Rfam assigns this 152-nucleotide sequence from Megasphaera vaginalis to the family "glmS glucosamine-6-phosphate activated ribozyme aptamer". By type it is a riboswitch. A reference for the family is Winkler et al. (2004), "Control of gene expression by a natural metabolite-responsive ribozyme", Nature. The organism belongs to Megasphaera, within Bacteria.
RNA sequence: AUAUCUGUCUCAGCGCUAGCUCUUGCACUCAGGCAAGAAGACGAGGAAGAGGUCGUCGAACAGUCAGCGGAUGCCUCUCGGCAAGAUCUGCCGAUACGAACUGUAAAAGCCCUUCGGUAACGGAGGGGACAAAGCAGACUCGAGAUCAACAG
Numbered sequence: 001a002u003a004u005c006u007g008u009c010u011c012a013g014c015g016c017u018a019g020c021u022c023u024u025g026c027a028c029u030c031a032g033g034c035a036a037g038a039a040g041a042c043g044a045g046g047a048a049g050a051g052g053u054c055g056u057c058g059a060a061c062a063g064u065c066a067g068c069g070g071a072u073g074c075c076u077c078u079c080g081g082c083a084a085g086a087u088c089u090g091c092c093g094a095u096a097c098g099a100a101c102u103g104u105a106a107a108a109g110c111c112c113u114u115c116g117g118u119a120a121c122g123g124a125g126g127g128g129a130c131a132a133a134g135c136a137g138a139c140u141c142g143a144g145a146u147c148a149a150c151a152g
Stems, first nucleotide, its partner, number of pairs: 021038006048078005056067001058065002079093005097142003101137002110127007